[Rfam]
RNA sequence: UUAUAUUGCAGAUAGGAGACUAGACUGUAUAUCUGUGUAACUGAAUAAAAGUUUAAGUGUUAUGUAAGAAUACCAGCCACAGAGCCACUAUUAUAGUGGUAUUUUUUUAA
Numbered sequence: 001u002u003a004u005a006u007u008g009c010a011g012a013u014a015g016g017a018g019a020c021u022a023g024a025c026u027g028u029a030u031a032u033c034u035g036u037g038u039a040a041c042u043g044a045a046u047a048a049a050a051g052u053u054u055a056a057g058u059g060u061u062a063u064g065u066a067a068g069a070a071u072a073c074c075a076g077c078c079a080c081a082g083a084g085c086c087a088c089u090a091u092u093a094u095a096g097u098g099g100u101a102u103u104u105u106u107u108u109a110a
Base pairs, nucleotide, nucleotide: 007029008028009027010026011025013022014021032083033082034081035080036079037078041076042075043074044053045052046051057073058072059071060070061069084100085099086098087097088096089095090094
RNA: DUF3800-I RNA